[Rfam]
RNA sequence: GCGGAUGGCUGGAUGGCCGCGUCCCCGAAAGGGGCCGAGGAAAGUCCGGACUCCACGGAGGAACGGCGCCGGGUAACGCCCGGCCGGCGAGAGCCGAGGGAAAGCGCCACAGAGAACAGACCGCCCCCGGCGAAAACCGGGGGUAAGGGUGAAACGGUGGGGUAAGAGCCCACCGCGCGACUGGCAACAGGAGCGGCACGGCAAGCCCCGCCGGGAGCAAGGCCAAAUAGGGACCGCGCGCGGGAAACCGCAGGGGCGCCUCUGCCCCGAGCAGGUCCGGGUUGGCUGCUUGAGCCAGGCAGCGAUGCCUGGCCCAGAGGAAUGGUCAUCGGGGCGCAAGCCCUACAGAAUCCGGCUUACAGGCCAUCCGCACAA
Number, nucleotide and partner (000 for none) at each position: 001g371002c370003g369004g368005a367006u366007g365008g364009c363010u362011g360012g330013a329014u328015g327016g326017c325018c324019g000020c037021g036022u000023c034024c033025c032026c031027g000028a000029a000030a000031g026032g025033g024034g023035c000036c021037g020038a000039g000040g000041a000042a358043a357044g356045u000046c355047c354048g353049g352050a351051c217052u216053c215054c214055a000056c000057g000058g000059a000060g261061g260062a000063a000064c213065g212066g211067c210068g209069c083070c082071g081072g080073g079074u000075a000076a000077c000078g000079c073080c072081c071082g070083g069084c098085c096086g095087g094088c093089g000090a000091g000092a000093g088094c087095c086096g085097a000098g084099g208100g207101a000102a000103a000104g206105c205106g202107c201108c200109a000110c000111a000112g000113a000114g000115a000116a000117c000118a000119g000120a000121c148122c147123g144124c143125c142126c141127c140128c139129g138130g137131c000132g000133a000134a000135a000136a000137c130138c129139g128140g127141g126142g125143g124144u123145a000146a000147g122148g121149g000150u000151g000152a000153a000154a000155c000156g174157g173158u172159g171160g170161g169162g000163u000164a000165a000166g000167a000168g000169c161170c160171c159172a158173c157174c156175g197176c195177g194178c193179g000180a000181c190182u189183g188184g000185c000186a000187a000188c183189a182190g181191g000192a000193g178194c177195g176196g000197c175198a000199c000200g108201g107202c106203a000204a000205g105206c104207c100208c099209c068210g067211c066212c065213g064214g054215g053216a052217g051218c000219a000220a000221g287222g286223c285224c284225a000226a000227a000228u000229a000230g000231g278232g277233a276234c275235c274236g000237c000238g000239c000240g000241c000242g000243g000244g000245a000246a000247a000248c000249c000250g000251c000252a000253g268254g267255g266256g265257c264258g000259c000260c061261u060262c000263u000264g257265c256266c255267c254268c253269g000270a000271g000272c000273a000274g235275g234276u233277c232278c231279g000280g000281g000282u000283u000284g224285g223286c222287u221288g000289c000290u000291u000292g000293a000294g313295c312296c311297a310298g309299g308300c307301a306302g000303c000304g000305a000306u301307g300308c299309c298310u297311g296312g295313c294314c000315c000316a000317g000318a000319g000320g000321a000322a000323u000324g018325g017326u016327c015328a014329u013330c012331g000332g000333g000334g000335c000336g000337c000338a000339a000340g000341c000342c000343c000344u000345a000346c000347a000348g000349a000350a000351u050352c049353c048354g047355g046356c044357u043358u042359a000360c011361a000362g010363g009364c008365c007366a006367u005368c004369c003370g002371c001372a000373c000374a000375a000
Shown here is a 375-nucleotide RNA sequence from Halovulum dunhuangense, a member of the family "Bacterial RNase P class A". Ribonuclease P (RNase P) is a ubiquitous endoribonuclease, found in archaea, bacteria and eukarya as well as chloroplasts and mitochondria. It scores 286 bits against the family's covariance model. Rfam links the family to the GO terms tRNA processing, dimeric ribonuclease P complex and ribonuclease P activity. Taxonomically the source falls in Halovulum (Bacteria, Pseudomonadati, Rhodobacterales, Paracoccaceae).